[Rfam]
RNA sequence: CUCUUAUCAAGAGCGGCGGAGGGAUAGGCCCGAUGAUGCCCGGCAACCAGCAGCAGAGCUGCAAGGUGCCAAUUCCUGCAGAGCGGUCAGCUCUGAAAGAUGAGAG
Numbered sequence: 001c002u003c004u005u006a007u008c009a010a011g012a013g014c015g016g017c018g019g020a021g022g023g024a025u026a027g028g029c030c031c032g033a034u035g036a037u038g039c040c041c042g043g044c045a046a047c048c049a050g051c052a053g054c055a056g057a058g059c060u061g062c063a064a065g066g067u068g069c070c071a072a073u074u075c076c077u078g079c080a081g082a083g084c085g086g087u088c089a090g091c092u093c094u095g096a097a098a099g100a101u102g103a104g105a106g
Base pairs, nucleotide, nucleotide: 001106002105003104004103005102006101007100008099013041015040016039017038021031022030023029025078026077027076028075042070043069044068045067047066048065050062051061052060074098079095080094081093082092083091084090
The family of this 106-nucleotide sequence from Alteribacter lacisalsi is "SAM riboswitch aptamer (S box leader)". The base pairs follow the family's consensus structure, which is taken from published work.